[Rfam]
RNA: mir-276 microRNA precursor family
RNA sequence: AUAGGUAUUAACCACUAGCGAGGUAUAGAGUUCCUACGUGAUGAUAUUGUAGGAACUUCAUACCGUGCUCUUGGGAAGCCUAA
Numbered sequence: 001a002u003a004g005g006u007a008u009u010a011a012c013c014a015c016u017a018g019c020g021a022g023g024u025a026u027a028g029a030g031u032u033c034c035u036a037c038g039u040g041a042u043g044a045u046a047u048u049g050u051a052g053g054a055a056c057u058u059c060a061u062a063c064c065g066u067g068c069u070c071u072u073g074g075g076a077a078g079c080c081u082a083a
Base pairs, nucleotide, nucleotide: 012074013073014072017069018068019067020066022064023063024062025061026060028058029057030056031055032054033053034052035051036050037049